[Rfam]
RNA sequence: AUCCCCGUCAUAGGAGGCCCCCUUGGAGGCCUCGCGGCGGCCUUAGCACACGGUGUUAGGGCCAUCGAGGACGGGUGUAAUUAUGCAACAGGGAAUCUUCCUGGUUGCUCCUU
Numbered sequence: 001a002u003c004c005c006c007g008u009c010a011u012a013g014g015a016g017g018c019c020c021c022c023u024u025g026g027a028g029g030c031c032u033c034g035c036g037g038c039g040g041c042c043u044u045a046g047c048a049c050a051c052g053g054u055g056u057u058a059g060g061g062c063c064a065u066c067g068a069g070g071a072c073g074g075g076u077g078u079a080a081u082u083a084u085g086c087a088a089c090a091g092g093g094a095a096u097c098u099u100c101c102u103g104g105u106u107g108c109u110c111c112u113u
Stems, first nucleotide, its partner, number of pairs: 003075003007072003013033002016030001018028001019026002035067003039063011085108005091102003

Annotation
This 113-nucleotide RNA sequence belongs to the Rfam family "J750 non-coding RNA (containing SLSL761 and SL783)". It is one of the family's seed sequences. Rfam classes the family as a cis-regulatory element.